This 572-nucleotide RNA sequence belongs to the Rfam family "ROOL RNA". Rfam describes the family as follows. Firmicutes, Fusobacteria (1 example), Tenericutes (1 example).

RNA sequence: CUUGCCAAUUUUGAUAGUAGGUAACCUUGUGAAGAUGUUUGUUAAACUGCAAGGAGUUAAGGUAUGUUGAUUCAGUUAUUAUAAGGAUACUUUUAAUAGGUGGAUUUGUUGUAGCAGCAAUGUUGCAGCAGGAGCAGGAAACCUGCAACGACAACUUAACGUGCUUAUUAUAUACGUUCAUAAAAACAUGAUUCUCUUGGUAGCAAUAAUAUACGCUCUCUGUGAGAGAAUAAUCUUAUAUGUUGAAUGUAGGGAUAUAUUUAACCUCUAUAAGAAAUUCCAAAUAAUGCUAUUGGUCGUGAACUUGAGAAAUCAAGGUAUAACAAGAGUUUGUAGUACAAGUAGCCAAAAGGACUAGAAUAUUAGAAAAUAAUAAAGCUUUUCUGAAAAACUGGUGAAAGUUAGAGGUAGUCAAUCCUCUUCAAGUUUUUAGUGUUGUUGCACUAUUGUAAAAUACGGGGCAAGAAGCAUUGGGGUAGCUCCUUAAUGCUCAGACUUGUCUUCUUGGUGGUUGAAUAUAUGAGAAGUAUGUAAUCGGUAAGGUGAAGACCUACCUGCUAUUUUCACAUGGA
Numbered sequence: 001c002u003u004g005c006c007a008a009u010u011u012u013g014a015u016a017g018u019a020g021g022u023a024a025c026c027u028u029g030u031g032a033a034g035a036u037g038u039u040u041g042u043u044a045a046a047c048u049g050c051a052a053g054g055a056g057u058u059a060a061g062g063u064a065u066g067u068u069g070a071u072u073c074a075g076u077u078a079u080u081a082u083a084a085g086g087a088u089a090c091u092u093u094u095a096a097u098a099g100g101u102g103g104a105u106u107u108g109u110u111g112u113a114g115c116a117g118c119a120a121u122g123u124u125g126c127a128g129c130a131g132g133a134g135c136a137g138g139a140a141a142c143c144u145g146c147a148a149c150g151a152c153a154a155c156u157u158a159a160c161g162u163g164c165u166u167a168u169u170a171u172a173u174a175c176g177u178u179c180a181u182a183a184a185a186a187c188a189u190g191a192u193u194c195u196c197u198u199g200g201u202a203g204c205a206a207u208a209a210u211a212u213a214c215g216c217u218c219u220c221u222g223u224g225a226g227a228g229a230a231u232a233a234u235c236u237u238a239u240a241u242g243u244u245g246a247a248u249g250u251a252g253g254g255a256u257a258u259a260u261u262u263a264a265c266c267u268c269u270a271u272a273a274g275a276a277a278u279u280c281c282a283a284a285u286a287a288u289g290c291u292a293u294u295g296g297u298c299g300u301g302a303a304c305u306u307g308a309g310a311a312a313u314c315a316a317g318g319u320a321u322a323a324c325a326a327g328a329g330u331u332u333g334u335a336g337u338a339c340a341a342g343u344a345g346c347c348a349a350a351a352g353g354a355c356u357a358g359a360a361u362a363u364u365a366g367a368a369a370a371u372a373a374u375a376a377a378g379c380u381u382u383u384c385u386g387a388a389a390a391a392c393u394g395g396u397g398a399a400a401g402u403u404a405g406a407g408g409u410a411g412u413c414a415a416u417c418c419u420c421u422u423c424a425a426g427u428u429u430u431u432a433g434u435g436u437u438g439u440u441g442c443a444c445u446a447u448u449g450u451a452a453a454a455u456a457c458g459g460g461g462c463a464a465g466a467a468g469c470a471u472u473g474g475g476g477u478a479g480c481u482c483c484u485u486a487a488u489g490c491u492c493a494g495a496c497u498u499g500u501c502u503u504c505u506u507g508g509u510g511g512u513u514g515a516a517u518a519u520a521u522g523a524g525a526a527g528u529a530u531g532u533a534a535u536c537g538g539u540a541a542g543g544u545g546a547a548g549a550c551c552u553a554c555c556u557g558c559u560a561u562u563u564u565c566a567c568a569u570g571g572a
Stems, first nucleotide, its partner, number of pairs: 007569001010566001013563002017559001020556002025054005037047004056160006070105005077098005083092003106131011134146005169534001185519001186513001189335002194329006200293006216228004234275006242265004249260003253281003294357005304317005339401001345396004383495004405421001407419002423507003426457001459504003464498002468491001470488007541552004
The sequence is in the family's curated seed alignment. It is annotated as a small RNA.